[Rfam]
RNA sequence: UGUCUCCUCCAACCCUCCCUGACUUGGAUUGAACCCGCUGCCGCAAGGUCAGCGGGUUUUUUUUC
Numbered sequence: 001u002g003u004c005u006c007c008u009c010c011a012a013c014c015c016u017c018c019c020u021g022a023c024u025u026g027g028a029u030u031g032a033a034c035c036c037g038c039u040g041c042c043g044c045a046a047g048g049u050c051a052g053c054g055g056g057u058u059u060u061u062u063u064u065c
Stems, first nucleotide, its partner, number of pairs: 008028005015021001032058008

The record is a 65-nucleotide sequence from Noviherbaspirillum autotrophicum, which matches "Betaproteobacteria toxic small RNA" in Rfam. Overexpression in amino aid rich medium attenuates growth, suggesting role in repressing amino acid intake and metabolism. For this family Rfam cites "A vast collection of microbial genes that are toxic to bacteria" (Kimelman et al., Genome Res, 2012). The source organism's lineage runs through Bacteria, Pseudomonadati, Betaproteobacteria, Burkholderiales and Noviherbaspirillum.